The family of this 128-nucleotide sequence from Streptomyces sp. NP160 is "FMN riboswitch aptamer (RFN element)". About the family: The RFN element is a highly conserved domain that is found frequently in the 5'-untranslated regions of prokaryotic mRNAs that encode for flavin mononucleotide (FMN) biosynthesis and transport proteins. NCBI's taxonomy places the organism under Bacteria, Bacillati, Actinomycetes, Streptomycetaceae, Streptomyces.
[Rfam]
RNA sequence: CGCGCGCUCCGGGGUCGGUGCAAUUCCGAACCGGCGGUGACAGUCCGCGACCCGACCGCAGCCAGCGGCCGGUGGACCUGGUGGAACUCCAGGACCGACGGUGAGAGUCCGGAGGGGAGGAGCACGCG
Dot-bracket structure: ..((.(((((.....(((.......))).[[((((((.....[[))))...((.................))....(((((.......)))))]])).(((.....]]))).......))))).))..
Numbered sequence: 001c002g003c004g005c006g007c008u009c010c011g012g013g014g015u016c017g018g019u020g021c022a023a024u025u026c027c028g029a030a031c032c033g034g035c036g037g038u039g040a041c042a043g044u045c046c047g048c049g050a051c052c053c054g055a056c057c058g059c060a061g062c063c064a065g066c067g068g069c070c071g072g073u074g075g076a077c078c079u080g081g082u083g084g085a086a087c088u089c090c091a092g093g094a095c096c097g098a099c100g101g102u103g104a105g106a107g108u109c110c111g112g113a114g115g116g117g118a119g120g121a122g123c124a125c126g127c128g
Stems, first nucleotide, its partner, number of pairs: 003126002006123005016028003030108002032097002034048004043095002052072002077093005099111003